[Rfam]
RNA: Group I catalytic intron
RNA sequence: AAGCCUUACUUAUUCGCUAAGGUCGGUGGUCGCUUUGAAAUUUGCUAGUCGGCUAAUAGAGCCGGCGACACCCUCAAAUUGCGGGAACUUCUUAAAGCCUCCGACUACCGCGGCCCAUCGAAAGAUAGGGUGUCAGCACUAGGGCGUAAUGGCCCUAGGGAUGGUAAAAAUGUCGAGGAUAUAGCGCCUGUUUUCGAGCGUUAAAAUAGAUAAUCCGCAGCCAAGCUCCCCCGGCUUAGGGAGAAGGUUCAGAGACUUAACGGGGGUGGGUGUCAUUAUAAGGACGAUGCCUAAGAUGAAGUCCAUCCACUGUCGAAAGAUGUGU
Numbered sequence: 001a002a003g004c005c006u007u008a009c010u011u012a013u014u015c016g017c018u019a020a021g022g023u024c025g026g027u028g029g030u031c032g033c034u035u036u037g038a039a040a041u042u043u044g045c046u047a048g049u050c051g052g053c054u055a056a057u058a059g060a061g062c063c064g065g066c067g068a069c070a071c072c073c074u075c076a077a078a079u080u081g082c083g084g085g086a087a088c089u090u091c092u093u094a095a096a097g098c099c100u101c102c103g104a105c106u107a108c109c110g111c112g113g114c115c116c117a118u119c120g121a122a123a124g125a126u127a128g129g130g131u132g133u134c135a136g137c138a139c140u141a142g143g144g145c146g147u148a149a150u151g152g153c154c155c156u157a158g159g160g161a162u163g164g165u166a167a168a169a170a171u172g173u174c175g176a177g178g179a180u181a182u183a184g185c186g187c188c189u190g191u192u193u194u195c196g197a198g199c200g201u202u203a204a205a206a207u208a209g210a211u212a213a214u215c216c217g218c219a220g221c222c223a224a225g226c227u228c229c230c231c232c233g234g235c236u237u238a239g240g241g242a243g244a245a246g247g248u249u250c251a252g253a254g255a256c257u258u259a260a261c262g263g264g265g266g267u268g269g270g271u272g273u274c275a276u277u278a279u280a281a282g283g284a285c286g287a288u289g290c291c292u293a294a295g296a297u298g299a300a301g302u303c304c305a306u307c308c309a310c311u312g313u314c315g316a317a318a319g320a321u322g323u324g325u
Base pairs, nucleotide, nucleotide: 006029007028008027009026010025012023013022033044069268070267071266072265073264075262080219081218082217083216084215085214090210091209092208220248221247227241228240252304254303255302256301257300258299270290271289272288273287274286276284277283311322312321313320314319